RNA: mir-320 microRNA precursor family
Organism: Cebus imitator
RNA sequence: GGUGCUUUUGGCCUUCUCUUCCUGGUUCUUCCUGGAGUCAGAAAAGCUGGGUUGAUAGGGCGAAAAAGAAAAAAG
Numbered sequence: 001g002g003u004g005c006u007u008u009u010g011g012c013c014u015u016c017u018c019u020u021c022c023u024g025g026u027u028c029u030u031c032c033u034g035g036a037g038u039c040a041g042a043a044a045a046g047c048u049g050g051g052u053u054g055a056u057a058g059g060g061c062g063a064a065a066a067a068g069a070a071a072a073a074a075g
Stems, first nucleotide, its partner, number of pairs: 014058002017055002021051005029043003033040002